The family of this 114-nucleotide sequence from Aphis gossypii is "Potassium channel RNA editing signal".
The literature on the family includes a 2004 paper in Nat Struct Mol Biol by Bhalla et al., "Control of human potassium channel inactivation by editing of a small mRNA hairpin".

RNA sequence: GUCGGAUACGGCGACAUGGCGCCUAAGACGUACAUGGGUAUGUUUGUCGGCGCGCUGUGCGCCUUGGCUGGCGUGCUGACCAUUGCGCUCCCCGUUCCUGUAAUCGUGUCGAAC
Numbered sequence: 001g002u003c004g005g006a007u008a009c010g011g012c013g014a015c016a017u018g019g020c021g022c023c024u025a026a027g028a029c030g031u032a033c034a035u036g037g038g039u040a041u042g043u044u045u046g047u048c049g050g051c052g053c054g055c056u057g058u059g060c061g062c063c064u065u066g067g068c069u070g071g072c073g074u075g076c077u078g079a080c081c082a083u084u085g086c087g088c089u090c091c092c093c094g095u096u097c098c099u100g101u102a103a104u105c106g107u108g109u110c111g112a113a114c
Stems, first nucleotide, its partner, number of pairs: 001114002005110001007108005014101003018097002021095002037077004049063003
This family represents a group of sequences related to the human potassium channel Kv1.1 hairpin element which directs the efficient modification of an adenosine to inosine by an adenosine deaminase acting on RNA (ADAR). The ADAR modification causes an isoleucine/valine recoding event which lies in the ion-conducting pore of the potassium channel. It is thought that this editing event targets the process of fast inactivation and allows a more rapid recovery from inactivation at negative potentials.